This 39-nucleotide RNA sequence from Tenacibaculum sp. MAR_2009_124 belongs to the Rfam family "DUF805b RNA".
RNA sequence: AAGGUGUUACCCGAAAAACCUGUUUAAAAAGAGUAGGGA
Numbered sequence: 001a002a003g004g005u006g007u008u009a010c011c012c013g014a015a016a017a018a019c020c021u022g023u024u025u026a027a028a029a030a031g032a033g034u035a036g037g038g039a
Stems, first nucleotide, its partner, number of pairs: 002021004010038003

Lineage of the source: Bacteria > Bacteroidota > Flavobacteriia > Flavobacteriaceae > Tenacibaculum. The match comes from Rfam's covariance-model search (41 bits).